[Rfam]
RNA sequence: GGAAGUAGAUAGGUAACUGGUGUGCCUACCGGUCUUCAAAACCGAGUUUUGGCGUUAAGUCGUCAUGGGUGGGUUCGAUUCCCACAUACUUCC
Numbered sequence: 001g002g003a004a005g006u007a008g009a010u011a012g013g014u015a016a017c018u019g020g021u022g023u024g025c026c027u028a029c030c031g032g033u034c035u036u037c038a039a040a041a042c043c044g045a046g047u048u049u050u051g052g053c054g055u056u057a058a059g060u061c062g063u064c065a066u067g068g069g070u071g072g073g074u075u076c077g078a079u080u081c082c083c084a085c086a087u088a089c090u091u092c093c
Base pairs, nucleotide, nucleotide: 001093002092003091004090005089006088007087008085011027012026013025014024015023017022028047029046030044031043032042033041050065051064052063053062070084071083072082073081

Rfam assigns this 93-nucleotide RNA sequence from Psychrilyobacter sp. S5 to the family "Selenocysteine transfer RNA". Rfam links the family to the GO term triplet codon-amino acid adaptor activity. On this family, see Mizutani and Goto, FEBS Lett 2000: "Eukaryotic selenocysteine tRNA has the 9/4 secondary structure". The base pairs follow the family's consensus structure, which is taken from published work. The match comes from Rfam's covariance-model search (66 bits).